[Rfam]
RNA sequence: CAGACCUUUAAAAGACAGUCCCGUGAGGCUGAGAAGGAAAACGGUAAGAAUGCACGAUUCGUGUAUUCAAAAAGCCACUUUUCUGCCCUCAUGCGGAAAAGUGGCUUUUUU
Numbered sequence: 001c002a003g004a005c006c007u008u009u010a011a012a013a014g015a016c017a018g019u020c021c022c023g024u025g026a027g028g029c030u031g032a033g034a035a036g037g038a039a040a041a042c043g044g045u046a047a048g049a050a051u052g053c054a055c056g057a058u059u060c061g062u063g064u065a066u067u068c069a070a071a072a073a074g075c076c077a078c079u080u081u082u083c084u085g086c087c088c089u090c091a092u093g094c095g096g097a098a099a100a101g102u103g104g105c106u107u108u109u110u111u
Stems, first nucleotide, its partner, number of pairs: 005037005016031005045071001048068009073106014
A member of the RNA family "PyrR binding site" from Halobacillus sp. BAB-2008, 111 nucleotides long. For this family Rfam cites "Molecular recognition of pyr mRNA by the Bacillus subtilis attenuation regulatory protein PyrR" (Bonner et al., Nucleic Acids Res, 2001). The family has 41 seed sequences and 1,498 matches in Rfam 15.1. It is annotated as a cis-regulatory element. Lineage of the source: Bacteria > Bacillati > Bacilli > Caryophanales > Halobacillus.